[Rfam]
RNA sequence: CACACGCUCCCUUAGAUCCACCUACGGGAUGUGUCCCUGAGUUGAGUUCUGCUCUUCUCCCUGUGAGUCCUGCAGUUCCAGCCAGGAAGUAUCCAGCAACUUUCCAGGUUGUACAGUCGGAGGUGCUUGAGUCAUUGGCGUGUGAGAGCAACACACCUGCACGCCAGCCAUUCGUGUUCUGUUGGACAACAGUCUGUCUCGCUGCAGACUGUCUCUCGCCAACAGAGCCAGGCUGGUGUGUGGACAGU
Numbered sequence: 001c002a003c004a005c006g007c008u009c010c011c012u013u014a015g016a017u018c019c020a021c022c023u024a025c026g027g028g029a030u031g032u033g034u035c036c037c038u039g040a041g042u043u044g045a046g047u048u049c050u051g052c053u054c055u056u057c058u059c060c061c062u063g064u065g066a067g068u069c070c071u072g073c074a075g076u077u078c079c080a081g082c083c084a085g086g087a088a089g090u091a092u093c094c095a096g097c098a099a100c101u102u103u104c105c106a107g108g109u110u111g112u113a114c115a116g117u118c119g120g121a122g123g124u125g126c127u128u129g130a131g132u133c134a135u136u137g138g139c140g141u142g143u144g145a146g147a148g149c150a151a152c153a154c155a156c157c158u159g160c161a162c163g164c165c166a167g168c169c170a171u172u173c174g175u176g177u178u179c180u181g182u183u184g185g186a187c188a189a190c191a192g193u194c195u196g197u198c199u200c201g202c203u204g205c206a207g208a209c210u211g212u213c214u215c216u217c218g219c220c221a222a223c224a225g226a227g228c229c230a231g232g233c234u235g236g237u238g239u240g241u242g243g244a245c246a247g248u
Base pairs, nucleotide, nucleotide: 002143003142004141005140006139007138008137011131012130013129014128015127019125020124021123022122023121025119026118027094028093029092030091031090036086037085038084041082042081043080044079046078049075050074051073052072057067058066059065096112097111098110099109100108101107157243158242159241160240161239164236166234167233168232169231178226179225180224181223182222183221184220185219190218192216196209197208198207
Dot-bracket structure: .(((((((..(((((...(((((.(((((((....(((..((((.(..((((....(((.....)))....))))..))))).)))...))))).((((((.....)))))).....)).))))).))))).....))))))).............(((((..(.((((........((((((((....(.(...(((........)))......).)))))))))....)))).)..))))).....